The family of this 109-nucleotide sequence from Microbacterium allomyrinae is "TPP riboswitch aptamer (THI element)". The match comes from Rfam's covariance-model search (72 bits).
RNA sequence: GAAUAUCCACACGGGUGCCCUCGCAAGGGCUGAGAUCGGGCUGACGCGGCCUGUGACCGUUCGAACCUGUCCGGGUAAUGCCGGCGAAGGAAGUAGGAGUUCCGUCAUG
Number, nucleotide and partner (000 for none) at each position: 001g000002a000003a000004u000005a000006u097007c096008c000009a094010c093011a060012c059013g058014g057015g000016u000017g030018c029019c028020c027021u026022c000023g000024c000025a000026a021027g020028g019029g018030c017031u000032g000033a000034g000035a000036u000037c053038g052039g051040g050041c049042u048043g047044a000045c000046g000047c043048g042049g041050c040051c039052u038053g037054u000055g000056a000057c014058c013059g012060u011061u000062c000063g000064a000065a000066c090067c089068u088069g000070u000071c084072c083073g082074g081075g000076u000077a000078a000079u000080g000081c074082c073083g072084g071085c000086g000087a000088a068089g067090g066091a000092a000093g010094u009095a000096g007097g006098a000099g000100u000101u000102c000103c000104g000105u000106c000107a000108u000109g000